[Rfam]
RNA sequence: AUCCGUCACGGGCGCUGAGGGGCGUCUGCGGCAUCACACGAAACCUGUGCCCUGGGAAGAUCUGGGCACUUCAGGGCGUU
Dot-bracket structure: ....(((.((((((((....)))))))).)))..............((((((.(.......).))))))...........
Numbered sequence: 001a002u003c004c005g006u007c008a009c010g011g012g013c014g015c016u017g018a019g020g021g022g023c024g025u026c027u028g029c030g031g032c033a034u035c036a037c038a039c040g041a042a043a044c045c046u047g048u049g050c051c052c053u054g055g056g057a058a059g060a061u062c063u064g065g066g067c068a069c070u071u072c073a074g075g076g077c078g079u080u
Stems, first nucleotide, its partner, number of pairs: 005032003009028008047069006054062001
The record is an 80-nucleotide RNA from Streptomyces jumonjinensis, which matches "nrdJ RNA" in Rfam. A search with the family's covariance model found it, with a score of 63 bits.